[Rfam]
RNA sequence: ACCAGGUGGCAGUGUGGUUAGCUGGUUGUUGUUUAAUUACAACGGCUAUCAGCACUGCCCGCCUGGG
Number, nucleotide and partner (000 for none) at each position: 001a000002c066003c065004a064005g063006g062007u000008g059009g058010c000011a056012g055013u054014g053015u052016g000017g050018u000019u048020a047021g046022c000023u045024g000025g043026u042027u041028g040029u039030u000031g000032u000033u000034u000035a000036a000037u000038u000039a029040c028041a027042a026043c025044g000045g023046c021047u020048a019049u000050c017051a000052g015053c014054a013055c012056u011057g000058c009059c008060c000061g000062c006063c005064u004065g003066g002067g000
The family of this 67-nucleotide RNA sequence from Panagrolaimus sp. PS1159 is "mir-34 microRNA precursor family".
Taxonomically the source falls in Panagrolaimus (Eukaryota, Ecdysozoa, Nematoda, Rhabditida).
A reference for the family is Dostie et al. (2003), "Numerous microRNPs in neuronal cells containing novel microRNAs", RNA.
Human mir-34a was discovered computationally and later experimentally verified. The mature sequence is excised from the 5' arm of the hairpin.